[Rfam]
RNA sequence: GGGAGUGUCGCCUAAGGGAAAGGGCAUCGAUCUUCUAAAUCGAGCUAUGUAGGUUCGACCCCUACCACUCCUG
Numbered sequence: 001g002g003g004a005g006u007g008u009c010g011c012c013u014a015a016g017g018g019a020a021a022g023g024g025c026a027u028c029g030a031u032c033u034u035c036u037a038a039a040u041c042g043a044g045c046u047a048u049g050u051a052g053g054u055u056c057g058a059c060c061c062c063u064a065c066c067a068c069u070c071c072u073g
Stems, first nucleotide, its partner, number of pairs: 001072007010025004027043005049065005
This 73-nucleotide RNA sequence from Leptolyngbya sp. FACHB-321 belongs to the Rfam family "tRNA". The family's consensus secondary structure is taken from published work. Lineage of the source: Bacteria > Cyanobacteriota > Cyanophyceae > Leptolyngbyaceae > Leptolyngbya.